[Rfam]
RNA sequence: UGUAUGCUAUAUUGUACGUCGCUUUGGAUAAAAGCGUCUGCAAAAUUACUAAAU
Numbered sequence: 001u002g003u004a005u006g007c008u009a010u011a012u013u014g015u016a017c018g019u020c021g022c023u024u025u026g027g028a029u030a031a032a033a034g035c036g037u038c039u040g041c042a043a044a045a046u047u048a049c050u051a052a053a054u
Stems, first nucleotide, its partner, number of pairs: 013043001014041003020036006
Notes:
A member of the RNA family "UnaL2 LINE 3' element" from Clupea harengus, 54 nucleotides long. The eel long interspersed element (LINE) UnaL2 and its partner short interspersed element (SINE) share a conserved 3' tail containing a stem-loop that is critical for their retrotransposition. It is annotated as a cis-regulatory element. Rfam 15.1 lists 493,311 matches to the family in 99 species.